Shown here is a 180-nucleotide RNA sequence from Pseudoalteromonas xiamenensis, a member of the family "Lysine riboswitch aptamer". Riboswitches are metabolite binding domains within certain messenger RNAs that serve as precision sensors for their corresponding targets. Allosteric rearrangement of mRNA structure is mediated by ligand binding, and this results in modulation of gene expression. This family includes riboswitches that sense lysine in a number of genes involved in lysine metabolism, including lysC. The base pairs follow the family's consensus structure, which is taken from published work. Gene Ontology term of the family: lysine biosynthetic process. A search with the family's covariance model found it, with a score of 101 bits.
Nucleotides: 180
Base pairs, nucleotide, nucleotide: 006175007174008173009172010171011170016081017080018079019078020077021076022075023074030066031065032064033063034062035061085115086114087113088112089111090110091109092108093107094106116142117141118140119139122137123136124135125134126133144165145164146163147162148161149160150159
Number, partner (000 for none) and nucleotide at each position: 001000u002000g003000g004000g005000c006175u007174g008173g009172a010171a011170g012000a013000g014000g015000a016081g017080c018079g019078u020077u021076a022075u023074u024000c025000a026000g027000g028000u029000a030066g031065u032064u033063g034062a035061c036000c037000g038000g039000a040000g041000g042000g043000g044000a045000g046000c047000a048000a049000a050000c051000c052000c053000c054000a055000u056000u057000g058000a059000a060000c061035g062034u063033c064032a065031a066030c067000g068000a069000g070000g071000g072000g073000a074023a075022a076021u077020a078019a079018c080017g081016c082000c083000g084000a085115g086114a087113a088112g089111u090110a091109u092108g093107u094106g095000u096000g097000u098000u099000u100000u101000g102000c103000u104000a105000c106094c107093a108092c109091a110090u111089a112088u113087u114086u115085c116142g117141g118140a119139c120000g121000c122137u123136u124135g125134g126133g127000c128000u129000g130000a131000a132000u133126c134125c135124c136123a137122a138000c139119g140118u141117c142116u143000g144165u145164c146163a147162c148161c149160a150159a151000u152000u153000u154000u155000g156000g157000u158000u159150u160149u161148g162147g163146u164145g165144g166000a167000g168000a169000g170011c171010u172009u173008c174007u175006g176000g177000u178000c179000u180000u